[Rfam]
RNA sequence: GGAGGAGGCAUCCAAAGGGAUCGCAUUGAUCCCAAACUCUCCAUGUCUUUGGAUCAUGCUAUCCCUUUGGAUUCCUCCUUUG
Number, nucleotide and partner (000 for none) at each position: 001g000002g080003a079004g078005g077006a076007g000008g074009c000010a072011u071012c070013c069014a068015a067016a066017g065018g064019g063020a062021u061022c000023g059024c058025a057026u056027u000028g055029a054030u053031c052032c051033c000034a000035a000036a000037c000038u000039c000040u000041c000042c000043a000044u000045g000046u000047c000048u000049u000050u000051g032052g031053a030054u029055c028056a026057u025058g024059c023060u000061a021062u020063c019064c018065c017066u016067u015068u014069g013070g012071a011072u010073u000074c008075c000076u006077c005078c004079u003080u002081u000082g000
The record is an 82-nucleotide RNA sequence from Vitis vinifera, which matches "mir-393 microRNA precursor family" in Rfam. A reference for the family is Kruszka et al. (2012), "Role of microRNAs and other sRNAs of plants in their changing environments", J Plant Physiol. Pairs were carried over by alignment from the consensus structure.